U4 spliceosomal RNA: a 139-nucleotide sequence from Monodelphis domestica. NCBI's taxonomy places the organism under Eukaryota, Gnathostomata, Mammalia, Didelphinae, Monodelphis. It is annotated as a spliceosomal small nuclear RNA.
[Rfam]
RNA sequence: AGCAUUGUGCAGUUGCAGUUUCAUAGCCAAUAAGGUUUAACUAAGGUGAGAUUAUUGCUUAUUGAAAACAAAACCUAACUCAAAUUCUAUCAUUCCCAUUUCCUAGCCUCUGGAAUGAUACAGAGGAGGUCUUUCAUGA
Numbered sequence: 001a002g003c004a005u006u007g008u009g010c011a012g013u014u015g016c017a018g019u020u021u022c023a024u025a026g027c028c029a030a031u032a033a034g035g036u037u038u039a040a041c042u043a044a045g046g047u048g049a050g051a052u053u054a055u056u057g058c059u060u061a062u063u064g065a066a067a068a069c070a071a072a073a074c075c076u077a078a079c080u081c082a083a084a085u086u087c088u089a090u091c092a093u094u095c096c097c098a099u100u101u102c103c104u105a106g107c108c109u110c111u112g113g114a115a116u117g118a119u120a121c122a123g124a125g126g127a128g129g130u131c132u133u134u135c136a137u138g139a
Stems, first nucleotide, its partner, number of pairs: 021051002024048001026047003034042003085124002088120009132139002